[Rfam]
RNA sequence: AAAAUCAAGCAGAAGCACCCGCUUCUCGCCUAAGUUGACGAAAGUGUCUCUGGGCUAGAUAUAAACGAUGAUAACUUGCAUUCGGUGUGAGUUAGAAAUUAUUUAUAGGCGGGUUCAUAAUGAACUCGUCUAUUUUUCUGCUG
Numbered sequence: 001a002a003a004a005u006c007a008a009g010c011a012g013a014a015g016c017a018c019c020c021g022c023u024u025c026u027c028g029c030c031u032a033a034g035u036u037g038a039c040g041a042a043a044g045u046g047u048c049u050c051u052g053g054g055c056u057a058g059a060u061a062u063a064a065a066c067g068a069u070g071a072u073a074a075c076u077u078g079c080a081u082u083c084g085g086u087g088u089g090a091g092u093u094a095g096a097a098a099u100u101a102u103u104u105a106u107a108g109g110c111g112g113g114u115u116c117a118u119a120a121u122g123a124a125c126u127c128g129u130c131u132a133u134u135u136u137u138c139u140g141c142u143g
Base pairs, nucleotide, nucleotide: 011026012025013024014023015022016021028055029054030053037048038047039046108130109129110128111127112126113125114124115123116122117121

Description:
The record is a 143-nucleotide sequence from Carnobacterium sp. 17-4, which matches "Ribosomal protein L20 leader" in Rfam. Rfam describes the family as follows. This family is a putative r-protein leader autoregulatory structure found in B. subtilis and other low-GC Gram-positive bacteria. It is located in the 5' untranslated regions of mRNAs encoding initiation factor 3 followed by ribosomal proteins L35 and L20 (infC-rpmI-rplT). Lineage of the source: Bacteria > Bacillati > Bacilli > Carnobacteriaceae > Carnobacterium. A search with the family's covariance model found it, with a score of 60 bits.